[Rfam]
Nucleotides: 253
Base pairs, nucleotide, nucleotide: 001224002223003222004221005220007218010197012195013194014193015192017160018159019158020157021156022155023154024153026150027149028148035059036058037057039056040055041054042053067129068128069127070126071125073123082093103121104120105119170185172183198212199211200210201209230253231252232251234250235249236248237247238246239245240244
Number, partner (000 for none) and nucleotide at each position: 001224g002223c003222a004221a005220u006000a007218g008000a009000a010197u011000a012195g013194g014193u015192u016000u017160c018159u019158c020157a021156a022155g023154g024153g025000u026150g027149g028148u029000c030000g031000g032000c033000a034000c035059u036058c037057a038000u039056c040055c041054c042053c043000g044000a045000a046000c047000a048000g049000a050000a051000a052000g053042g054041g055040g056039g057037u058036g059035g060000u061000g062000c063000u064000g065000g066000u067129g068128a069127c070126g071125g072000u073123a074000u075000u076000c077000g078000a079000a080000g081000c082093g083000u084000u085000g086000a087000u088000g089000u090000u091000u092000g093082c094000a095000g096000u097000a098000a099000c100000u101000u102000u103121u104120g105119c106000a107000g108000g109000c110000u111000u112000g113000a114000u115000c116000g117000u118000c119105g120104c121103g122000a123073u124000c125071c126070u127069g128068u129067c130000a131000c132000a133000c134000g135000a136000c137000c138000a139000a140000a141000a142000a143000a144000a145000a146000u147000a148028a149027u150026c151000c152000a153024c154023c155022c156021u157020u158019g159018a160017g161000u162000u163000a164000a165000c166000g167000g168000c169000u170185c171000a172183g173000g174000u175000g176000g177000a178000u179000u180000a181000c182000u183172c184000c185170g186000c187000u188000u189000a190000a191000c192015a193014g194013c195012c196000g197010a198212u199211c200210c201209c202000c203000c204000u205000u206000a207000a208000a209201g210200g211199g212198a213000a214000c215000c216000g217000c218007c219000u220005a221004u222003u223002g224001c225000a226000a227000g228000a229000c230253c231252g232251u233000u234250u235249g236248g237247u238246g239245u240244u241000a242000c243000c244240a245239g246238c247237a248236c249235c250234g251232g252231c253230g
The record is a 253-nucleotide sequence from Bacillus sp. V3-13, which matches "BsrG" in Rfam. About the family: bsrE, bsrG and bsrH pair through intermolecular interactions with antisense sRNAs. They form type I toxin/antitoxin system that includes an mRNA encoding for a short, toxic peptide (bsrE, bsrG and bsrH) and an antitoxin that is comprised of an antisense RNA. bsrG encodes a 39-amino-acid toxin, and the 180 nucleotide antisense sRNA called SR4 acts as the antitoxin (they overlap by 123 nucleotides). A reference for the family is Jahn and Brantl (2013), "One antitoxin--two functions: SR4 controls toxin mRNA decay and translation", Nucleic Acids Res. Pairs were carried over by alignment from the consensus structure, which was predicted with WAR. Rfam links the family to the GO terms autolysis and toxin activity. The family's RNA type in Rfam is small RNA. NCBI's taxonomy places the organism under Bacteria, Bacillati, Bacillota, Bacilli, Bacillus.